[Rfam]
A member of the RNA family "Small nucleolar RNA SNORD77" from Aquila chrysaetos, 64 nucleotides long. The family is grouped with related families in Rfam's "SNORD77 clan". For this family Rfam cites "Guide RNAs with 5' caps and novel box C/D snoRNA-like domains for modification of snRNAs in metazoa" (Tycowski et al., Curr Biol, 2004). By type it is a C/D-box small nucleolar RNA. About the family: U77 belongs to the C/D family of snoRNAs. It is predicted to guide 2'O-ribose methylation of large 28S rRNA subunit at position A1521. The C/D snoRNAs U44, U47, U74, U75, U76, U78, U79, U80 and U81 share the same host gene as U77 (non-coding).

RNA sequence: AGAAUGUUGCUUUUACAGUUCAAAGAUCUAAACAUGAAGUAUUUUAUCAGUAUUCUGUUUUUCU
Numbered sequence: 001a002g003a004a005u006g007u008u009g010c011u012u013u014u015a016c017a018g019u020u021c022a023a024a025g026a027u028c029u030a031a032a033c034a035u036g037a038a039g040u041a042u043u044u045u046a047u048c049a050g051u052a053u054u055c056u057g058u059u060u061u062u063c064u
Base pairs, nucleotide, nucleotide: 001060004035005034006033007032008031011025012024014023040052041051042050043049